[Rfam]
RNA sequence: AAUAACCUCAUUUUUCGUUUUCCGUGUCCAACGUUUGACCAUUUGUCUUAUUUGAAAUUUUUUUGCGAUUAAUAUUUUUGUUGUUACUAUAUGAUAAAAUAUGAAUAAUACUUUAUAGGUGACUAUUUUUUUUAGGUUUUUACACAAAUUUUUCAAAUAAGACGAAAUGUCAAACGUUGGACACGGAAAAAC
Numbered sequence: 001a002a003u004a005a006c007c008u009c010a011u012u013u014u015u016c017g018u019u020u021u022c023c024g025u026g027u028c029c030a031a032c033g034u035u036u037g038a039c040c041a042u043u044u045g046u047c048u049u050a051u052u053u054g055a056a057a058u059u060u061u062u063u064u065g066c067g068a069u070u071a072a073u074a075u076u077u078u079u080g081u082u083g084u085u086a087c088u089a090u091a092u093g094a095u096a097a098a099a100u101a102u103g104a105a106u107a108a109u110a111c112u113u114u115a116u117a118g119g120u121g122a123c124u125a126u127u128u129u130u131u132u133u134a135g136g137u138u139u140u141u142a143c144a145c146a147a148a149u150u151u152u153u154c155a156a157a158u159a160a161g162a163c164g165a166a167a168u169g170u171c172a173a174a175c176g177u178u179g180g181a182c183a184c185g186g187a188a189a190a191a192c
Base pairs, nucleotide, nucleotide: 027181028180029179030178031177032176034174035173036172037171038170039169042166043165044164045163046162047161048160049159050158051157
RNA: MIR812 microRNA precursor family